[Rfam]
RNA: GcvB RNA
RNA sequence: UAGCAAGAAGCCUGAACGGCUCAGUUCUCUCUAGAAUUGAUUGGCUUAUUGCUGCGAUGUUGUGUUUGCAAAACUCGCUUUUCGAGUUUAGGUAGAAUUCUACCAUUCGUUUAGUGGUCACCUCCUUGACGGCUAAACCAUACUUCCUGUAUUCAUUUUGACCUGUCUGUCAAAAAGAUAUUUAACACCGCCUCCCUAAGGCGGUGUUUUUUUAU
Numbered sequence: 001u002a003g004c005a006a007g008a009a010g011c012c013u014g015a016a017c018g019g020c021u022c023a024g025u026u027c028u029c030u031c032u033a034g035a036a037u038u039g040a041u042u043g044g045c046u047u048a049u050u051g052c053u054g055c056g057a058u059g060u061u062g063u064g065u066u067u068g069c070a071a072a073a074c075u076c077g078c079u080u081u082u083c084g085a086g087u088u089u090a091g092g093u094a095g096a097a098u099u100c101u102a103c104c105a106u107u108c109g110u111u112u113a114g115u116g117g118u119c120a121c122c123u124c125c126u127u128g129a130c131g132g133c134u135a136a137a138c139c140a141u142a143c144u145u146c147c148u149g150u151a152u153u154c155a156u157u158u159u160g161a162c163c164u165g166u167c168u169g170u171c172a173a174a175a176a177g178a179u180a181u182u183u184a185a186c187a188c189c190g191c192c193u194c195c196c197u198a199a200g201g202c203g204g205u206g207u208u209u210u211u212u213u214a215u
Stems, first nucleotide, its partner, number of pairs: 009046004015042002021040008072088006091104005151182001153180001184208008